[Rfam]
RNA: Glycine riboswitch aptamer
Organism: Tamaricihabitans halophyticus
RNA sequence: GAAACCUUGGCGGGAGAGUCUCCGUGCGGACACACGGGGCACCGAAGGAGCAAACUCCCCAGAAACUCUCAGGUACCCAUACCGCCAGUGGUCA
Numbered sequence: 001g002a003a004a005c006c007u008u009g010g011c012g013g014g015a016g017a018g019u020c021u022c023c024g025u026g027c028g029g030a031c032a033c034a035c036g037g038g039g040c041a042c043c044g045a046a047g048g049a050g051c052a053a054a055c056u057c058c059c060c061a062g063a064a065a066c067u068c069u070c071a072g073g074u075a076c077c078c079a080u081a082c083c084g085c086c087a088g089u090g091g092u093c094a
Base pairs, nucleotide, nucleotide: 007088008087009086010085011084012083013082020039021038022037023036041074042073043072044070045069048068049067050066